Source information:
Shown here is a 102-nucleotide sequence from Ornithorhynchus anatinus, a member of the family "Small nucleolar RNA SNORD16". Rfam 15.1 lists 1,321 matches to the family in 655 species. It scores 84 bits against the family's covariance model. A reference for the family is Huttenhofer et al. (2001), "RNomics: an experimental approach that identifies 201 candidates for novel, small, non-messenger RNAs in mouse", EMBO J.
RNA sequence: UGCUAUGAUGCUGUAAUUUGCGUCUUAUCCAAGCGUUCGGCGGCAGUUGCCUGCUGCCAGAAAGCUGGCGCUCUUUGGAUGACGAUUACUCGUGACUGAGCA
Numbered sequence: 001u002g003c004u005a006u007g008a009u010g011c012u013g014u015a016a017u018u019u020g021c022g023u024c025u026u027a028u029c030c031a032a033g034c035g036u037u038c039g040g041c042g043g044c045a046g047u048u049g050c051c052u053g054c055u056g057c058c059a060g061a062a063a064g065c066u067g068g069c070g071c072u073c074u075u076u077g078g079a080u081g082a083c084g085a086u087u088a089c090u091c092g093u094g095a096c097u098g099a100g101c102a
Stems, first nucleotide, its partner, number of pairs: 001102003021084004031074001032072004040065002042058005